[Rfam]
RNA sequence: AUUCCUUCUAUCGUGUAUCCUGGAUUGAUGUGGCCUCAGAUGCUUGA
Numbered sequence: 001a002u003u004c005c006u007u008c009u010a011u012c013g014u015g016u017a018u019c020c021u022g023g024a025u026u027g028a029u030g031u032g033g034c035c036u037c038a039g040a041u042g043c044u045u046g047a
Base pairs, nucleotide, nucleotide: 010025011024012023032044033043034042

The record is a 47-nucleotide RNA sequence from Paspalum vaginatum, which matches "Plastid-ycf3 group II-D1 intron" in Rfam. About the family: Plastid rpl16 is a non-coding RNA (ncRNA) recognised in plastids. It was recognised in and intronic region of a ribosome rpl16 gene. The literature on the family includes a 2023 paper in Plant Commun by Richter et al., "Retrograde signaling in plants: A critical review focusing on the GUN pathway and beyond". It scores 59 bits against the family's covariance model. Pairs were carried over by alignment from the consensus structure, which was predicted with LocARNA.